Bacterial RNase P class A: a 339-nucleotide RNA sequence from Butyricicoccus pullicaecorum. The match comes from Rfam's covariance-model search (268 bits). Ribonuclease P (RNase P) is a ubiquitous endoribonuclease, found in archaea, bacteria and eukarya as well as chloroplasts and mitochondria.

Nucleotides: 339
Base pairs, nucleotide, nucleotide: 001335002334003333004332005331006330007329008328009327010326012305013304014303015302016301017300018299020040021039022038023037024036025035026034027033045323046322047321049320050319051318052317053316054217055216056215057214062245063244067213068212069211070210071209072086073085074084075083076082087101088099089098090097091096102208103207107206108205109202110201111200123148124147125144126143127142128141129140130139131138132137156174157173159171160170161169178195179194180193181192182191183190184189221262222261223260224259230253231252232251236250237249238248239247240246269288270287271286272285273284274283275282276281
Number, partner (000 for none) and nucleotide at each position: 001335c002334g003333a004332g005331u006330a007329a008328u009327c010326c011000u012305g013304a014303c015302g016301g017300u018299c019000g020040c021039g022038u023037a024036c025035c026034g027033g028000c029000u030000c031000g032000a033027c034026u035025g036024g037023u038022a039021u040020g041000a042000g043000g044000a045323a046322a047321g048000u049320c050319c051318g052317g053316g054217c055216u056215g057214c058000a059000u060000a061000g062245g063244g064000u065000a066000a067213g068212g069211a070210u071209a072086g073085c074084a075083g076082a077000u078000a079000a080000c081000g082076u083075c084074u085073g086072c087101c088099g089098a090097a091096g092000g093000c094000a095000a096091c097090u098089u099088c100000a101087g102208g103207a104000a105000u106000a107206g108205u109202g110201c111200a112000a113000c114000a115000g116000a117000g118000a119000u120000a121000u122000a123148c124147c125144g126143c127142c128141a129140g130139a131138g132137u133000u134000u135000g136000u137132g138131c139130u140129c141128u142127g143126g144125u145000a146000a147124g148123g149000g150000u151000g152000g153000a154000a155000a156174g157173g158000c159171g160170a161169g162000g163000u164000a165000a166000g167000a168000g169161c170160u171159c172000a173157c174156c175000a176000c177000g178195c179194c180193c181192c182191a183190u184189g185000g186000u187000a188000a189184c190183a191182u192181g193180g194179g195178g196000g197000g198000u199000c200111u201110g202109u203000a204000a205108a206107c207103u208102c209071u210070a211069u212068c213067c214057g215056c216055a217054g218000c219000a220000a221262c222261a223260u224259c225000g226000a227000c228000a229000g230253g231252a232251g233000c234000u235000a236250u237249g238248a239247c240246u241000g242000a243000c244063c245062c246240g247239g248238u249237c250236g251232c252231u253230c254000c255000g256000a257000c258000u259224g260223a261222u262221g263000g264000c265000u266000u267000g268000a269288g270287g271286c272285g273284u274283g275282c276281g277000g278000c279000g280000a281276c282275g283274u284273g285272c286271g287270u288269c289000c290000c291000a292000g293000a294000u295000a296000g297000a298000u299018g300017a301016u302015c303014g304013u305012c306000c307000a308000c309000g310000a311000c312000a313000g314000a315000a316053c317052c318051c319050g320049g321047c322046u323045u324000a325000c326010g327009g328008a329007u330006u331005g332004c333003u334002c335001g336000u337000a338000c339000c